[Rfam]
RNA sequence: GGUCAGUGAUGAACUGUAAAAGGUCUGAUUGCCCAAGUCCUUUCCCAUUGUCCCCUCUGCUCCCAGCAGCCCCUGCUCUACUCCCAGCAUGCUCUAGUUGUGCAUCGUUGGCCACAGGGGCUGCUGACAGAGAGGAUGACCUCACAUCCUGUGUCUCUAAGAGACCAAGGCGUCACAGUGAUGAUGGACAUCCAACAUGACCAAUCACCAAGGAGUAUCGGGGUGUGGGAUUGGGAUAGGUAGAUGAUCUCAAGUUUUCAAGCUGAGACC
Numbered sequence: 001g002g003u004c005a006g007u008g009a010u011g012a013a014c015u016g017u018a019a020a021a022g023g024u025c026u027g028a029u030u031g032c033c034c035a036a037g038u039c040c041u042u043u044c045c046c047a048u049u050g051u052c053c054c055c056u057c058u059g060c061u062c063c064c065a066g067c068a069g070c071c072c073c074u075g076c077u078c079u080a081c082u083c084c085c086a087g088c089a090u091g092c093u094c095u096a097g098u099u100g101u102g103c104a105u106c107g108u109u110g111g112c113c114a115c116a117g118g119g120g121c122u123g124c125u126g127a128c129a130g131a132g133a134g135g136a137u138g139a140c141c142u143c144a145c146a147u148c149c150u151g152u153g154u155c156u157c158u159a160a161g162a163g164a165c166c167a168a169g170g171c172g173u174c175a176c177a178g179u180g181a182u183g184a185u186g187g188a189c190a191u192c193c194a195a196c197a198u199g200a201c202c203a204a205u206c207a208c209c210a211a212g213g214a215g216u217a218u219c220g221g222g223g224u225g226u227g228g229g230a231u232u233g234g235g236a237u238a239g240g241u242a243g244a245u246g247a248u249c250u251c252a253a254g255u256u257u258u259c260a261a262g263c264u265g266a267g268a269c270c
Base pairs, nucleotide, nucleotide: 001270002269003268004267035250037248038247039246043230044229045228046227047226048225060215061214062213063212064126065125066124067123068122069121070120084111085110086109087108088107092102134193135192136191137190138189140187150177151176152175153174155170156169158167
RNA: Small Cajal body specific RNA 6